[Rfam]
RNA sequence: AUUCAUCUUCGGGGUCGGGUGUAAUUCCCAACCGGCAGUAAAUAAAGCCUGCGACCUGCUAGUAUGUAUCAUAUUAGUGGCUGAUCUAGUGAGAUUCUAGAGCCGACAGUAUAGUCUGGAUGGGAGAAGAUGGAG
Numbered sequence: 001a002u003u004c005a006u007c008u009u010c011g012g013g014g015u016c017g018g019g020u021g022u023a024a025u026u027c028c029c030a031a032c033c034g035g036c037a038g039u040a041a042a043u044a045a046a047g048c049c050u051g052c053g054a055c056c057u058g059c060u061a062g063u064a065u066g067u068a069u070c071a072u073a074u075u076a077g078u079g080g081c082u083g084a085u086c087u088a089g090u091g092a093g094a095u096u097c098u099a100g101a102g103c104c105g106a107c108a109g110u111a112u113a114g115u116c117u118g119g120a121u122g123g124g125a126g127a128a129g130a131u132g133g134a135g
Base pairs, nucleotide, nucleotide: 003133004132005131006130007129008128009127010126017029018028019027031115032114033105034104035052036051037050038049047103048102056080057079058078059077085101086100087099088098089097107118108117109116
Shown here is a 135-nucleotide RNA sequence from Staphylococcus aureus, a member of the family "FMN riboswitch aptamer (RFN element)". Rfam links the family to the GO term FMN binding. The RFN element is a highly conserved domain that is found frequently in the 5'-untranslated regions of prokaryotic mRNAs that encode for flavin mononucleotide (FMN) biosynthesis and transport proteins.